[Rfam]
Nucleotides: 247
Stems, first nucleotide, its partner, number of pairs: 010246003017239002020236001023232002026230003030225002034221002039184001042181001043179006049171002051168001053166005059088005065082001068080004093160006106146002111140006118134007186219002188216006195209004
Number, partner (000 for none) and nucleotide at each position: 001000g002000u003000g004000a005000g006000g007000u008000g009000a010246u011245g012244a013000c014000a015000c016000a017239g018238u019000u020236u021000a022000u023232c024231c025000a026230u027229u028228c029000u030225c031224u032000g033000a034221g035220u036000g037000c038000a039184g040000u041000g042181g043179u044178g045177c046176u047175g048174c049171c050170c051168u052000c053166c054165u055164g056163c057162a058000g059088c060087a061086c062085c063084c064000c065082g066000a067000u068080u069079c070078c071077u072000g073000u074000u075000c076000u077071a078070g079069g080068g081000u082065c083000u084063g085062g086061g087060u088059g089000c090000u091000g092000u093160g094159c095158a096157g097156u098155c099000u100000c101000c102000a103000g104000a105000g106146a107145u108000c109000c110000u111140g112139c113138a114137g115136u116135c117000u118134c119133c120132c121131g122130g123129u124128g125000u126000c127000c128124u129123a130122c131121u132120g133119g134118g135116g136115g137114c138113u139112g140111c141000u142000g143000u144000g145107g146106u147000g148000u149000g150000u151000g152000g153000c154000u155098g156097g157096c158095u159094g160093c161000c162057u163056g164055c165054a166053g167000u168051a169000g170050g171049g172000g173000a174048g175047c176046a177045g178044u179043g180000c181042u182000g183000u184039c185000a186219g187218g188216g189215a190214u191213g192212g193211a194000g195209c196208c197207c198206c199000u200000c201000u202000u203000u204000g205000g206198g207197g208196g209195g210000c211193u212192c213191c214190a215189u216188c217000c218187u219186c220035a221034c222000u223000g224031g225030g226000a227000c228028g229027a230026g231024g232023g233000a234000u235000g236020g237000u238018g239017u240000c241000u242000g243000a244012u245011c246010a247000c
Small nucleolar RNA SNORD17: a 247-nucleotide sequence from Sapayoa aenigma. The family's RNA type in Rfam is C/D-box small nucleolar RNA. Rfam's curators write: The snoRNA HBI-43 belongs to the C/D family of snoRNAs, guiding 2'O-ribose methylation at position U3797 of the 28S rRNA. Pseudouridylation in position U3797 is predicted to be guided by the H/ACA snoRNA ACA48. The literature on the family includes a 2001 paper in EMBO J by Huttenhofer et al., "RNomics: an experimental approach that identifies 201 candidates for novel, small, non-messenger RNAs in mouse". Lineage of the source: Eukaryota > Bilateria > Sauria > Neognathae > Sapayoa.